[Rfam]
RNA sequence: CCUCUUUGCAAGCGCGCCAGAAACGCCUAUCUUAAGCCUGUCUCGGCAACGGGACUAUGGGCAUAAACGCGCUCGUAAUAAGCGGAUCGGACCCGGGGGCGGUACCCGGCGGCUCCACCAAUCAUCCCGUCGUUGGGGGGACUUUGGGGCCGAAACAGGAUCGACGAACGUGUAAAGGGGUAGCUUUGUCCCGGUGAGGUACCACCGUAAUCGGUCCGUUAAGCAUAAUUGCCAACGACAAUCGUGCUCCGGUCGCUCUCGCAGCCUAAUGCUGCGCGAAAGACCGAAAUCUUAAGUCCAGUCCUCUAGCCAGGGCUGGCGGGGUUCGCAGGCACCUGGCAACAGAAGCCUGCAUU
Numbered sequence: 001c002c003u004c005u006u007u008g009c010a011a012g013c014g015c016g017c018c019a020g021a022a023a024c025g026c027c028u029a030u031c032u033u034a035a036g037c038c039u040g041u042c043u044c045g046g047c048a049a050c051g052g053g054a055c056u057a058u059g060g061g062c063a064u065a066a067a068c069g070c071g072c073u074c075g076u077a078a079u080a081a082g083c084g085g086a087u088c089g090g091a092c093c094c095g096g097g098g099g100c101g102g103u104a105c106c107c108g109g110c111g112g113c114u115c116c117a118c119c120a121a122u123c124a125u126c127c128c129g130u131c132g133u134u135g136g137g138g139g140g141a142c143u144u145u146g147g148g149g150c151c152g153a154a155a156c157a158g159g160a161u162c163g164a165c166g167a168a169c170g171u172g173u174a175a176a177g178g179g180g181u182a183g184c185u186u187u188g189u190c191c192c193g194g195u196g197a198g199g200u201a202c203c204a205c206c207g208u209a210a211u212c213g214g215u216c217c218g219u220u221a222a223g224c225a226u227a228a229u230u231g232c233c234a235a236c237g238a239c240a241a242u243c244g245u246g247c248u249c250c251g252g253u254c255g256c257u258c259u260c261g262c263a264g265c266c267u268a269a270u271g272c273u274g275c276g277c278g279a280a281a282g283a284c285c286g287a288a289a290u291c292u293u294a295a296g297u298c299c300a301g302u303c304c305u306c307u308a309g310c311c312a313g314g315g316c317u318g319g320c321g322g323g324g325u326u327c328g329c330a331g332g333c334a335c336c337u338g339g340c341a342a343c344a345g346a347a348g349c350c351u352g353c354a355u356u
Stems, first nucleotide, its partner, number of pairs: 040055005059191005069184002071181004083170002087167003093109005110152007192207004198217002201215003322337004328353006
The family of this 356-nucleotide RNA from Roseivivax halotolerans is "Alphaproteobacteria transfer-messenger RNA". Taxonomically the source falls in Roseivivax (Bacteria, Pseudomonadati, Pseudomonadota, Rhodobacterales). Rfam classes the family as a non-coding RNA gene. The literature on the family includes a 1996 paper in RNA by Williams and Bartel, "Phylogenetic analysis of tmRNA secondary structure". The family's consensus secondary structure is taken from published work. Rfam links the family to the GO term RNA catabolic process. The family is grouped with related families in Rfam's "tRNA clan".